[Rfam]
RNA sequence: CGGCGACUAUAAACAAGCAGUGAGCUUAAAUGCAAGUCAUUUGUAUGAAUGGCAACAUUGUCAAAUUGUCGGGAACGCCCUUAGAGCCUUAACUACGGCGGCUCAUCGAAAGAUAGAGUGCAGCAGCAGGGUAAUGACCUCGCGGAUCGUAAAAACGUUAAGGAUUGGGUAACCUGCAGCCAAGCGCUAAGUGGGUUUGUAUGGUACAUCCUGCUUUCCAAAUAUAAGCGUGCAGUUCACAGGCCAAAUGACAGUGGGCUCAUUCUUUGCGAUGAGCUUAAGAUAUGGUCGGUCCCCUAACGAAAGUUGGGG
Numbered sequence: 001c002g003g004c005g006a007c008u009a010u011a012a013a014c015a016a017g018c019a020g021u022g023a024g025c026u027u028a029a030a031u032g033c034a035a036g037u038c039a040u041u042u043g044u045a046u047g048a049a050u051g052g053c054a055a056c057a058u059u060g061u062c063a064a065a066u067u068g069u070c071g072g073g074a075a076c077g078c079c080c081u082u083a084g085a086g087c088c089u090u091a092a093c094u095a096c097g098g099c100g101g102c103u104c105a106u107c108g109a110a111a112g113a114u115a116g117a118g119u120g121c122a123g124c125a126g127c128a129g130g131g132u133a134a135u136g137a138c139c140u141c142g143c144g145g146a147u148c149g150u151a152a153a154a155a156c157g158u159u160a161a162g163g164a165u166u167g168g169g170u171a172a173c174c175u176g177c178a179g180c181c182a183a184g185c186g187c188u189a190a191g192u193g194g195g196u197u198u199g200u201a202u203g204g205u206a207c208a209u210c211c212u213g214c215u216u217u218c219c220a221a222a223u224a225u226a227a228g229c230g231u232g233c234a235g236u237u238c239a240c241a242g243g244c245c246a247a248a249u250g251a252c253a254g255u256g257g258g259c260u261c262a263u264u265c266u267u268u269g270c271g272a273u274g275a276g277c278u279u280a281a282g283a284u285a286u287g288g289u290c291g292g293u294c295c296c297c298u299a300a301c302g303a304a305a306g307u308u309g310g311g312g
Base pairs, nucleotide, nucleotide: 056256057255058254059253060252062250063249067178068177070176071175072174073173078169079168080167179236180235184231185230186229187228192224193223196220240291242290243289244288245287246286258277259276260275261274262273263272264271297310298309299308300307301306

A member of the RNA family "Group I catalytic intron" from Letharia columbiana, 312 nucleotides long. Pairs were carried over by alignment from the consensus structure, which is taken from published work. NCBI's taxonomy places the organism under Eukaryota, Dikarya, Lecanoromycetes, Lecanorineae, Letharia. Group I catalytic introns are large self-splicing ribozymes. They catalyse their own excision from mRNA, tRNA and rRNA precursors in a wide range of organisms. A search with the family's covariance model found it, with a score of 88 bits.